[Rfam]
RNA: Small nucleolar RNA SNORD10
RNA sequence: GUCUCAUGAUGAUCACCAUGCGUGUCAACUGAUCCCAGAAUCCCCUGCUGCUCCAGGCCUCCUGCCAGUAUUCUGCUGGCAGGUGAACGGGGGCUGCAGGACUCUGGGACCAUGAUCAGACCUGACUAAGGCUGAAGAC
Numbered sequence: 001g002u003c004u005c006a007u008g009a010u011g012a013u014c015a016c017c018a019u020g021c022g023u024g025u026c027a028a029c030u031g032a033u034c035c036c037a038g039a040a041u042c043c044c045c046u047g048c049u050g051c052u053c054c055a056g057g058c059c060u061c062c063u064g065c066c067a068g069u070a071u072u073c074u075g076c077u078g079g080c081a082g083g084u085g086a087a088c089g090g091g092g093g094c095u096g097c098a099g100g101a102c103u104c105u106g107g108g109a110c111c112a113u114g115a116u117c118a119g120a121c122c123u124g125a126c127u128a129a130g131g132c133u134g135a136a137g138a139c
Base pairs, nucleotide, nucleotide: 001139002138003137004136044100045099046098047097048096050094051093